Shown here is a 169-nucleotide sequence from Firmicutes bacterium CAG:536, a member of the family "Group II catalytic intron D1-D4-3". The base pairs follow the family's consensus structure. A search with the family's covariance model found it, with a score of 124 bits. The organism belongs to Bacillota, within Bacteria.
RNA sequence: UUCAUCGUGAGGUGAAAUCUGAAAGAAGGUCUAGGCAAACCGUUGGUCCGAAGUACAUGAAUCACAUCAGGCCAGUCGUAUGGAUAAGUGUGCCAUACAACGUAAAGUCCAAAUAGCUAUUGAAUACGAAGGGUAAAUGUGGCGGAUAGAUGAAGAGAAAGAUAUGUAU
Number, nucleotide and partner (000 for none) at each position: 001u016002u015003c014004a013005u012006c011007g000008u000009g000010a000011g006012g005013u004014g003015a002016a001017a000018u000019c000020u000021g000022a000023a000024a000025g000026a000027a000028g169029g000030u000031c166032u000033a000034g000035g000036c161037a000038a000039a000040c000041c155042g000043u153044u152045g151046g147047u146048c145049c144050g143051a000052a000053g000054u000055a000056c000057a000058u000059g000060a000061a000062u142063c141064a140065c139066a138067u000068c000069a000070g000071g134072c133073c132074a000075g000076u129077c128078g127079u126080a125081u124082g110083g109084a108085u107086a000087a000088g103089u102090g101091u100092g000093c000094c000095a000096u000097a000098c000099a000100a091101c090102g089103u088104a000105a000106a000107g085108u084109c083110c082111a000112a000113a000114u000115a000116g000117c000118u000119a000120u000121u000122g000123a000124a081125u080126a079127c078128g077129a076130a000131g000132g073133g072134u071135a000136a000137a000138u066139g065140u064141g063142g062143c050144g049145g048146a047147u046148a000149g000150a000151u045152g044153a043154a000155g041156a000157g000158a000159a000160a000161g036162a000163u000164a000165u000166g031167u000168a000169u028